[Rfam]
RNA sequence: AGAGGCCCUCGGCAGCCGGGGUAGAAUGCUUGCCUUGUUGCUGCAGCAACGAAGCAAGCAUUCCGCCAGGCCUCUCACGCUGCCCGC
Numbered sequence: 001a002g003a004g005g006c007c008c009u010c011g012g013c014a015g016c017c018g019g020g021g022u023a024g025a026a027u028g029c030u031u032g033c034c035u036u037g038u039u040g041c042u043g044c045a046g047c048a049a050c051g052a053a054g055c056a057a058g059c060a061u062u063c064c065g066c067c068a069g070g071c072c073u074c075u076c077a078c079g080c081u082g083c084c085c086g087c
Base pairs, nucleotide, nucleotide: 004084005083006082012074015071016070017069020067021066022065024063025062026061027060028059029058030057031056032055033054037050038049039048040047041046
A member of the RNA family "mir-9195 microRNA precursor family" from Myotis lucifugus, 87 nucleotides long.